Annotation: 6S / SsrS RNA: a 180-nucleotide RNA from Geothermobacter hydrogeniphilus. Rfam classes the family as a non-coding RNA gene. The organism belongs to Geothermobacter, within Bacteria. A search with the family's covariance model found it, with a score of 93 bits.
[Rfam]
RNA sequence: GGCUCUCUGCCUUGCAGGUGAGGUCGCAAAGCCCCGGCGGUAUAGUUGUAGAACGGGACUGUUUCAACGACAUGGUGUGCCAGCCCGCCACGUAGCGGGACGCCUGAAGUGCCGGUAAACGGUCCCACUUAUUCGGGAGUCGCCUGAGGCCCCGAGACCCACGGCAGCGGUGGAGAGUCU
Numbered sequence: 001g002g003c004u005c006u007c008u009g010c011c012u013u014g015c016a017g018g019u020g021a022g023g024u025c026g027c028a029a030a031g032c033c034c035c036g037g038c039g040g041u042a043u044a045g046u047u048g049u050a051g052a053a054c055g056g057g058a059c060u061g062u063u064u065c066a067a068c069g070a071c072a073u074g075g076u077g078u079g080c081c082a083g084c085c086c087g088c089c090a091c092g093u094a095g096c097g098g099g100a101c102g103c104c105u106g107a108a109g110u111g112c113c114g115g116u117a118a119a120c121g122g123u124c125c126c127a128c129u130u131a132u133u134c135g136g137g138a139g140u141c142g143c144c145u146g147a148g149g150c151c152c153c154g155a156g157a158c159c160c161a162c163g164g165c166a167g168c169g170g171u172g173g174a175g176a177g178u179c180u
Base pairs, nucleotide, nucleotide: 002178003177004176005175006174007173008172009171010170011169012167013166014165015164018162019161031150032149033148035146036145037144038142039141055126056125057124059122060121061120062119063118064117066116068114069113071111072110073109079103080102084099085098086097087096088095